[Rfam]
RNA: Small nucleolar RNA snoR99
Organism: Vigna radiata
RNA sequence: GUGCUUUAGGGAUGAACAUGUCCCUAACAUUCAAUUCAUCCAUCCUUUUCACUUUGUCAGCUCUUUUUUCUGUGUCUUGCUGAUCAUUAUAGGGUGGAACAUUU
Numbered sequence: 001g002u003g004c005u006u007u008a009g010g011g012a013u014g015a016a017c018a019u020g021u022c023c024c025u026a027a028c029a030u031u032c033a034a035u036u037c038a039u040c041c042a043u044c045c046u047u048u049u050c051a052c053u054u055u056g057u058c059a060g061c062u063c064u065u066u067u068u069u070c071u072g073u074g075u076c077u078u079g080c081u082g083a084u085c086a087u088u089a090u091a092g093g094g095u096g097g098a099a100c101a102u103u104u
Stems, first nucleotide, its partner, number of pairs: 039098006056084006